[Rfam]
RNA sequence: GUGCCCUUUUAAGGUUAACAUAGUACUUUAAGAGGUCAACACAAAAGGGUAAAGGAACUCUCCAAAAAACCCAGAGAAGGGACUGUCUGUCUCCUCUUUGGAUCCUGUCUGGAGUCACAACU
Number, nucleotide and partner (000 for none) at each position: 001g000002u051003g050004c049005c048006c047007u046008u045009u044010u043011a000012a000013g000014g040015u039016u038017a000018a000019c035020a000021u032022a000023g000024u000025a000026c000027u000028u000029u000030a000031a000032g021033a000034g000035g019036u000037c000038a016039a015040c014041a000042c000043a010044a009045a008046a007047g006048g005049g004050u003051a002052a000053a000054g000055g000056a000057a000058c000059u000060c114061u113062c112063c111064a110065a000066a000067a000068a000069a000070c000071c101072c100073a099074g098075a097076g096077a095078a000079g093080g092081g091082a000083c000084u089085g000086u000087c000088u000089g084090u000091c081092u080093c079094c000095u077096c076097u075098u074099u073100g072101g071102a000103u000104c000105c000106u000107g000108u000109c000110u064111g063112g062113a061114g060115u000116c000117a000118c000119a000120a000121c000122u000
This 122-nucleotide sequence from Nannospalax galili belongs to the Rfam family "Small nucleolar RNA SNORA26". For this family Rfam cites "RNomics: an experimental approach that identifies 201 candidates for novel, small, non-messenger RNAs in mouse" (Huttenhofer et al., EMBO J, 2001). It scores 124 bits against the family's covariance model. The family is grouped with related families in Rfam's "SNORA27 clan". Pairs were carried over by alignment from the consensus structure, which was predicted with RNAalifold. Rfam's curators write: The snoRNA HBI-6 belong to the H/ACA family of snoRNAs, guiding the pseudouridylation of position U4522 if the 28S rRNA. HBI-6 is the human orthologue of mouse MBI-6 snoRNA. Gene Ontology terms of the family: nucleolus and RNA processing.